[Rfam]
RNA sequence: UUCCGGGUGACUGGAAAUCUGAAGGAAGCCGAAGGCAAAACGCUGGCCUGACGAACAGGAAGCGGAUACGAGGCGUUGCAUUGGGGUGAGCAGGCAACUAUCUGCAAAGCCCAAAAUUUGCACGGAACAGUGCAGCGUAGAUCCGACAGGCAUAAGCGUGAAGGUGGGUGCG
Numbered sequence: 001u002u003c004c005g006g007g008u009g010a011c012u013g014g015a016a017a018u019c020u021g022a023a024g025g026a027a028g029c030c031g032a033a034g035g036c037a038a039a040a041c042g043c044u045g046g047c048c049u050g051a052c053g054a055a056c057a058g059g060a061a062g063c064g065g066a067u068a069c070g071a072g073g074c075g076u077u078g079c080a081u082u083g084g085g086g087u088g089a090g091c092a093g094g095c096a097a098c099u100a101u102c103u104g105c106a107a108a109g110c111c112c113a114a115a116a117u118u119u120g121c122a123c124g125g126a127a128c129a130g131u132g133c134a135g136c137g138u139a140g141a142u143c144c145g146a147c148a149g150g151c152a153u154a155a156g157c158g159u160g161a162a163g164g165u166g167g168g169u170g171c172g
Stems, first nucleotide, its partner, number of pairs: 001016006030170002035165002040159005046151005063145005073138003077134007084112004090105004
The family of this 172-nucleotide RNA sequence from Desulfopila aestuarii is "Group II catalytic intron D1-D4-3". Lineage of the source: Bacteria > Pseudomonadati > Thermodesulfobacteriota > Desulfobulbales > Desulfopila aestuarii. The pairing is the family consensus, mapped onto this sequence.